[Rfam]
RNA: Small nucleolar RNA Z107/R87
RNA sequence: GAUGACAGUGAUGACCACAUAAUAUUCAAGCUCAACAGACUGGAAUGCAGGGUUUUCUCUCAUUAGAGAUUUCUUUGCGUGUCGACAACCCCGCUGAACUGAGUCAUC
Numbered sequence: 001g002a003u004g005a006c007a008g009u010g011a012u013g014a015c016c017a018c019a020u021a022a023u024a025u026u027c028a029a030g031c032u033c034a035a036c037a038g039a040c041u042g043g044a045a046u047g048c049a050g051g052g053u054u055u056u057c058u059c060u061c062a063u064u065a066g067a068g069a070u071u072u073c074u075u076u077g078c079g080u081g082u083c084g085a086c087a088a089c090c091c092c093g094c095u096g097a098a099c100u101g102a103g104u105c106a107u108c
Base pairs, nucleotide, nucleotide: 001108002107003106004105005104006103
Dot-bracket structure: ((((((................................................................................................))))))